The record is a 64-nucleotide RNA sequence from Enterococcus hirae, which matches "Enterococcus sRNA A9" in Rfam.
[Rfam]
RNA sequence: GCGAAGCGAUACUAUUUUUAUCAAUAAAGCACAAAAACCACUCUACUGCGAAUAGAGUGGUUUU
Numbered sequence: 001g002c003g004a005a006g007c008g009a010u011a012c013u014a015u016u017u018u019u020a021u022c023a024a025u026a027a028a029g030c031a032c033a034a035a036a037a038c039c040a041c042u043c044u045a046c047u048g049c050g051a052a053u054a055g056a057g058u059g060g061u062u063u064u
Base pairs, nucleotide, nucleotide: 006019008017009016034064035063036062037061038060039059040058041057042056043055044054045053
Annotation: By type it is an antisense RNA. For this family Rfam cites "Whole-genome mapping of 5' RNA ends in bacteria by tagged sequencing: a comprehensive view in Enterococcus faecalis" (Innocenti et al., RNA, 2015).